[Rfam]
Shown here is a 520-nucleotide RNA, a member of the family "ROOL RNA". From the family's description: Firmicutes, Fusobacteria (1 example), Tenericutes (1 example).
Nucleotides: 520
Stems, first nucleotide, its partner, number of pairs: 007517001010514001013511002016508003021503002025056005037051004058162006072108003076104002079101001081100004086095003109134004114129006137148004168501001172481003181473001187469001188463001191325004198319006204297006220232004238278006246268003252262002255285004301346004329376001335371004340366001358445004382393002397457003410452002414448002418441001420438007489500004
Number, partner (000 for none) and nucleotide at each position: 001000a002000a003000c004000a005000a006000a007517a008000u009000a010514a011000c012000a013511a014510a015000u016508u017507u018506u019000a020000u021503u022502u023000a024000c025056c026055u027054g028053a029052g030000u031000g032000c033000a034000u035000a036000a037051c038050g039049g040048g041000c042000u043000g044000a045000c046000a047000a048040c049039u050038c051037g052029c053028u054027c055026a056025g057000a058162a059161a060160u061159c062158g063157a064000c065000a066000a067000c068000c069000g070000g071000a072108g073107g074106c075000g076104u077103c078000u079101u080000g081100u082099g083098u084097g085000u086095a087094c088093g089000g090000a091000u092000a093088c094087g095086u096000u097084c098083g099082c100081a101079a102000g103077g104076g105000g106074g107073c108072u109134u110133a111132u112131u113000a114129a115128u116127g117126g118125c119124u120000g121000u122000g123000a124119g125118g126117c127116u128115a129114u130000c131112a132111a133110u134109g135000g136000a137148g138147a139146g140145a141000g142000c143000a144000u145140u146139c147138u148137c149000a150000a151000u152000c153000g154000a155000a156000g157063u158062c159061g160060g161059u162058u163000g164000u165000g166000c167000a168501c169000a170000u171000a172481a173480a174479a175000u176000g177000u178000a179000u180000a181473g182000u183000c184000a185000a186000a187469g188463g189000c190000u191325u192324u193323g194322c195000a196000a197000a198319c199318u200317u201316g202315c203314c204297g205296u206295c207294a208293g209292a210000a211000u212000a213000a214000u215000a216000g217000a218000c219000g220232g221231u222230c223229u224000c225000u226000g227000u228000g229223a230222g231221a232220c233000a234000a235000u236000a237000a238278g239277c240276c241275c242274a243273u244000a245000a246268g247267c248266u249000g250000u251000g252262a253261g254000c255285u256284g257283g258282u259000g260000c261253u262252u263000g264000c265000a266248a267247g268246c269000c270000a271000a272000u273243g274242u275241g276240g277239g278238u279000a280000a281000u282258a283257c284256c285255a286000a287000a288000a289000c290000a291000a292209u293208c294207u295206g296205a297204u298000a299000g300000c301346c302345a303344c304343g305000u306000u307000g308000a309000a310000a311000u312000a313000a314203g315202g316201c317200a318199a319198g320000a321000a322194g323193c324192a325191a326000g327000a328000a329376a330000g331000a332000g333000u334000a335371g336370c337369a338368u339000a340366a341000a342000u343304c344303g345302u346301g347000a348000a349000a350000c351000a352000a353000a354000a355000u356000u357000u358445g359444c360443u361442g362000a363000a364000a365000g366340u367000c368338a369337u370336g371335u372000g373000a374000a375000a376329u377000u378000u379000g380000c381000g382393g383392g384000c385000a386000u387000u388000a389000a390000u391000c392383u393382c394000g395000c396000g397457u398456a399455g400000g401000a402000u403000a404000c405000a406000a407000a408000c409000g410452g411451g412000u413000a414448a415447g416000a417000a418441g419000c420438u421437u422436g423435u424434g425433g426432g427000u428000c429000g430000c431000u432426c433425c434424u435423g436422c437421a438420a439000g440000c441418u442361c443360a444359g445358c446000c447415u448414u449000a450000u451411c452410c453000g454000c455399c456398u457397a458000g459000u460000g461000g462000c463188u464000g465000a466000a467000u468000a469187u470000g471000a472000u473181u474000a475000g476000a477000a478000u479174u480173u481172u482000a483000u484000g485000u486000g487000u488000a489500a490499a491498g492497c493000g494000a495000a496000a497492g498491c499490u500489u501168g502022a503021a504000u505000a506018g507017a508016a509000u510014u511013u512000g513000u514010u515000a516000u517007u518000u519000u520000g